[Rfam]
RNA sequence: AUCUUAUCAAGAGAAGCAGAGGGAUUUGGCCCGAUGACGCUUCAGCAACCUCUAACAAAUGUUAGAAAGGUGCUAAUUCCAGCAAAGGUUUUUCCUUUGAGAGAUAAGAG
Numbered sequence: 001a002u003c004u005u006a007u008c009a010a011g012a013g014a015a016g017c018a019g020a021g022g023g024a025u026u027u028g029g030c031c032c033g034a035u036g037a038c039g040c041u042u043c044a045g046c047a048a049c050c051u052c053u054a055a056c057a058a059a060u061g062u063u064a065g066a067a068a069g070g071u072g073c074u075a076a077u078u079c080c081a082g083c084a085a086a087g088g089u090u091u092u093u094c095c096u097u098u099g100a101g102a103g104a105u106a107a108g109a110g
Stems, first nucleotide, its partner, number of pairs: 002109007013043005021032003026082004044074004049070002051066004078102001083099006
Source information
The record is a 110-nucleotide RNA, which matches "SAM riboswitch aptamer (S box leader)" in Rfam. Rfam's curators put it in the seed alignment. The base pairs follow the family's consensus structure, which is taken from published work.